[Rfam]
RNA sequence: CAGAACACUUAAACCCUGUUCUGAUUCUGCAAUGAUGAGGACAGGUUGAACGUCUACUAGAGCAAGACCACACGCGUGCCCACACCCAGUUCUCUCCCCAGGUCUGGUUUUCAAACGCUGGUGACACAC
Numbered sequence: 001c002a003g004a005a006c007a008c009u010u011a012a013a014c015c016c017u018g019u020u021c022u023g024a025u026u027c028u029g030c031a032a033u034g035a036u037g038a039g040g041a042c043a044g045g046u047u048g049a050a051c052g053u054c055u056a057c058u059a060g061a062g063c064a065a066g067a068c069c070a071c072a073c074g075c076g077u078g079c080c081c082a083c084a085c086c087c088a089g090u091u092c093u094c095u096c097c098c099c100a101g102g103u104c105u106g107g108u109u110u111u112c113a114a115a116c117g118c119u120g121g122u123g124a125c126a127c128a129c
Stems, first nucleotide, its partner, number of pairs: 003057001005055001016044007024036003067122004073117001080107003084103003089098001
RNA: Small nucleolar RNA SNORA72